[Rfam]
RNA sequence: AUCCUGCCGCCUGAAUCUUUCGGCUCAACCUCGCAACUAAAGACGUAGGUGAGCAAAGUUUCAGGUGUGCAGGAUA
Number, nucleotide and partner (000 for none) at each position: 001a000002u074003c073004c072005u071006g070007c069008c067009g066010c065011c064012u063013g062014a061015a000016u000017c058018u057019u056020u055021c000022g000023g000024c053025u052026c051027a050028a000029c049030c048031u047032c000033g000034c000035a000036a000037c000038u000039a000040a000041a000042g000043a000044c000045g000046u000047a031048g030049g029050u027051g026052a025053g024054c000055a020056a019057a018058g017059u000060u000061u014062c013063a012064g011065g010066u009067g008068u000069g007070c006071a005072g004073g003074a002075u000076a000